[Rfam]
RNA sequence: AAGCAACACUCUGUGACAGAUGACUGAAACAGUCUGGCACAAUUUGAGUUUGCUGUAGCAAGUAGUCUAACCUAUUCUGGUAUUCUCUCUUCCAUGAGGCAUGCUGUUAUAUAGACUUAAACAUU
Numbered sequence: 001a002a003g004c005a006a007c008a009c010u011c012u013g014u015g016a017c018a019g020a021u022g023a024c025u026g027a028a029a030c031a032g033u034c035u036g037g038c039a040c041a042a043u044u045u046g047a048g049u050u051u052g053c054u055g056u057a058g059c060a061a062g063u064a065g066u067c068u069a070a071c072c073u074a075u076u077c078u079g080g081u082a083u084u085c086u087c088u089c090u091u092c093c094a095u096g097a098g099g100c101a102u103g104c105u106g107u108u109a110u111a112u113a114g115a116c117u118u119a120a121a122c123a124u125u
Stems, first nucleotide, its partner, number of pairs: 009048003012041004017036005064117006073111003078106004086099004